[Rfam]
RNA sequence: AUUCAGGGACGACCUUGAAGUGAAUUCUGAAAAAGCUAGUCAGGGACGACCUUG
Numbered sequence: 001a002u003u004c005a006g007g008g009a010c011g012a013c014c015u016u017g018a019a020g021u022g023a024a025u026u027c028u029g030a031a032a033a034a035g036c037u038a039g040u041c042a043g044g045g046a047c048g049a050c051c052u053u054g
Base pairs, nucleotide, nucleotide: 002019003018004017005016006015007014008013041054042053043052044051045050
Notes: A member of the RNA family "Guanidine-II riboswitch aptamer (mini-ykkC)" from Dreissena polymorpha, 54 nucleotides long. The base pairs follow the family's consensus structure, which is taken from published work.